[Rfam]
RNA sequence: GAUUCGAAUGUGAGAAUUGGAUGAAACUAAAGCCUUUUGUGCUCAACAGGGUUUAGUUUCCUCCAAUAUCUUACCUUCAACAG
Numbered sequence: 001g002a003u004u005c006g007a008a009u010g011u012g013a014g015a016a017u018u019g020g021a022u023g024a025a026a027c028u029a030a031a032g033c034c035u036u037u038u039g040u041g042c043u044c045a046a047c048a049g050g051g052u053u054u055a056g057u058u059u060c061c062u063c064c065a066a067u068a069u070c071u072u073a074c075c076u077u078c079a080a081c082a083g
Stems, first nucleotide, its partner, number of pairs: 004080001006078003011073004016067006023060008033050003
RNA: MIR2275 microRNA precursor family